[Rfam]
RNA sequence: GCCGGCUUAGCUCAGUUGGUAGAGCAGCAGUUUUGUAAACUGACGGUCACGGGUUCAAGUCCUGUAGCCGGCA
Numbered sequence: 001g002c003c004g005g006c007u008u009a010g011c012u013c014a015g016u017u018g019g020u021a022g023a024g025c026a027g028c029a030g031u032u033u034u035g036u037a038a039a040c041u042g043a044c045g046g047u048c049a050c051g052g053g054u055u056c057a058a059g060u061c062c063u064g065u066a067g068c069c070g071g072c073a
Stems, first nucleotide, its partner, number of pairs: 001072007010025004028042004049065005
Annotation
This 73-nucleotide RNA sequence from Azospirillum sp. TSO22-1 belongs to the Rfam family "tRNA". The family's consensus secondary structure is taken from published work. The match comes from Rfam's covariance-model search (68 bits).